The record is a 168-nucleotide RNA, which matches "FGF-1 internal ribosome entry site (IRES)" in Rfam. For this family Rfam cites "Internal Ribosome Entry Site Structural Motifs Conserved among Mammalian Fibroblast Growth Factor 1 Alternatively Spliced mRNAs" (Martineau et al., Mol Cell Biol, 2004). This family represents the FGF-1 internal ribosome entry site (IRES). The FGF-1 IRES is present in the 5' UTR of the mRNA and allows cap-independent translation. It is thought that FGF-1 IRES activity is strictly controlled and highly tissue specific.
[Rfam]
RNA sequence: CGCUCCAGGGGAAUCAGGGCAUCGCCUCCUUUUCUGGGAGGACACUCCCUUCUGAUGGUGAAUGGGAACUCCCUUCCUCCUGCAGCAGCCUGCCUGCAGCUGUCCUGGUAGAACAGUGUGGACAUUGCAGAAGCUGUCACUGCCCCAGAAAGAAAGCACCCCAGAGCC
Number, nucleotide and partner (000 for none) at each position: 001c000002g167003c166004u165005c164006c000007a000008g162009g161010g160011g159012a000013a000014u153015c152016a050017g049018g048019g047020c000021a000022u000023c000024g000025c041026c040027u039028c038029c037030u036031u000032u000033u000034c000035u000036g030037g029038g028039a027040g026041g025042a000043c000044a000045c000046u000047c019048c018049c017050u016051u149052c148053u147054g000055a000056u000057g000058g079059u000060g076061a075062a074063u000064g073065g072066g071067a000068a000069c000070u000071c066072c065073c064074u062075u061076c060077c000078u000079c058080c000081u000082g000083c000084a141085g140086c136087a135088g134089c133090c000091u000092g000093c000094c130095u129096g128097c127098a126099g125100c000101u124102g000103u000104c000105c120106u000107g000108g000109u000110a000111g000112a000113a000114c000115a000116g000117u000118g000119u000120g105121g000122a000123c000124a101125u099126u098127g097128c096129a095130g094131a000132a000133g089134c088135u087136g086137u000138c000139a000140c085141u084142g000143c000144c000145c000146c000147a053148g052149a051150a000151a000152g015153a014154a000155a000156g000157c000158a000159c011160c010161c009162c008163a000164g005165a004166g003167c002168c000